[Rfam]
RNA sequence: GUAUGAAGAUAAAUCAAAGAGGUGAGAGUGGAUUACCACAGCAACCCGCUUCAUACACAUUGGACUAUACCAAACUGAUCUUUAGGUAGAUUGGAUAUGUAAAAAGAACAGCAUUAGGGGUGAAGGGCGAAAGGAUGUUAGCCAUACACCGAGUAGCACUAGCCCUGAUAAUAUGCGAGAGCCCCAACCUGAGUAGAUGAGGAAGGCCGUAGCAGUGAGUACACUGUAGCCAACAAGGUUCCUACUGGUAAGGAUCACCCACUAGGUAUGACCUGUAGUUGGGGGCAUGCCCAGGCCAUCCUUAAUGCAACCGGGGGUUGGUUGCAUGAAUCCAAUAGGGAAAUCUACACAGCCUGAUAGGGUAUCGGCGCCGAUGGGGAAAGGCUCUAUAAAAUGGCGUGGAACAUAGCAC
Numbered sequence: 001g002u003a004u005g006a007a008g009a010u011a012a013a014u015c016a017a018a019g020a021g022g023u024g025a026g027a028g029u030g031g032a033u034u035a036c037c038a039c040a041g042c043a044a045c046c047c048g049c050u051u052c053a054u055a056c057a058c059a060u061u062g063g064a065c066u067a068u069a070c071c072a073a074a075c076u077g078a079u080c081u082u083u084a085g086g087u088a089g090a091u092u093g094g095a096u097a098u099g100u101a102a103a104a105a106g107a108a109c110a111g112c113a114u115u116a117g118g119g120g121u122g123a124a125g126g127g128c129g130a131a132a133g134g135a136u137g138u139u140a141g142c143c144a145u146a147c148a149c150c151g152a153g154u155a156g157c158a159c160u161a162g163c164c165c166u167g168a169u170a171a172u173a174u175g176c177g178a179g180a181g182c183c184c185c186a187a188c189c190u191g192a193g194u195a196g197a198u199g200a201g202g203a204a205g206g207c208c209g210u211a212g213c214a215g216u217g218a219g220u221a222c223a224c225u226g227u228a229g230c231c232a233a234c235a236a237g238g239u240u241c242c243u244a245c246u247g248g249u250a251a252g253g254a255u256c257a258c259c260c261a262c263u264a265g266g267u268a269u270g271a272c273c274u275g276u277a278g279u280u281g282g283g284g285g286c287a288u289g290c291c292c293a294g295g296c297c298a299u300c301c302u303u304a305a306u307g308c309a310a311c312c313g314g315g316g317g318u319u320g321g322u323u324g325c326a327u328g329a330a331u332c333c334a335a336u337a338g339g340g341a342a343a344u345c346u347a348c349a350c351a352g353c354c355u356g357a358u359a360g361g362g363u364a365u366c367g368g369c370g371c372c373g374a375u376g377g378g379g380a381a382a383g384g385c386u387c388u389a390u391a392a393a394a395u396g397g398c399g400u401g402g403a404a405c406a407u408a409g410c411a412c
Stems, first nucleotide, its partner, number of pairs: 001056008111176004120163002125160002127157002133150002136148003178388006188379002190351002193348006200302004205297004212227006230282005236274005241266004246261003283292003305327010331341003352363004366402001368400006

The family of this 412-nucleotide RNA is "Pestivirus internal ribosome entry site (IRES) including 5'UTR SLI". The literature on the family includes a 2000 paper in RNA by Kolupaeva et al., "Ribosomal binding to the internal ribosomal entry site of classical swine fever virus". Its family is annotated with ribosome binding in the Gene Ontology. The sequence is in the family's curated seed alignment. From the family's description: This family represents the internal ribosome entry site (IRES) of the the pestiviruses. The pestivirus IRES allows cap and end-independent translation of mRNA in the host cell. Clan: IRES1 clan.